[Rfam]
RNA sequence: AGUGGCACAAUGAGGAGUUACUUUGCUAAUGCAUCUAUUAUGAGGUUGAAAAGCCAAUGACCUGAUACGUCCUUUUCAUUCCUAUUGUACCUA
Numbered sequence: 001a002g003u004g005g006c007a008c009a010a011u012g013a014g015g016a017g018u019u020a021c022u023u024u025g026c027u028a029a030u031g032c033a034u035c036u037a038u039u040a041u042g043a044g045g046u047u048g049a050a051a052a053g054c055c056a057a058u059g060a061c062c063u064g065a066u067a068c069g070u071c072c073u074u075u076u077c078a079u080u081c082c083u084a085u086u087g088u089a090c091c092u093a
Stems, first nucleotide, its partner, number of pairs: 004091002007088002010079005045054003
RNA: Small nucleolar RNA Z162
Organism: Hordeum vulgare